[Rfam]
RNA: nhaA-I RNA
RNA sequence: GGGUGUCCUCGCUGUAUACGCGGGGGCAGGUUCUGGGCACCGGUCGGGCCGCCGGUG
Number, nucleotide and partner (000 for none) at each position: 001g000002g000003g000004u000005g027006u026007c025008c024009u023010c022011g021012c020013u000014g000015u000016a000017u000018a000019c000020g012021c011022g010023g009024g008025g007026g006027c005028a000029g000030g000031u000032u000033c000034u000035g000036g000037g000038c057039a056040c055041c054042g053043g052044u051045c000046g000047g000048g000049c000050c000051g044052c043053c042054g041055g040056u039057g038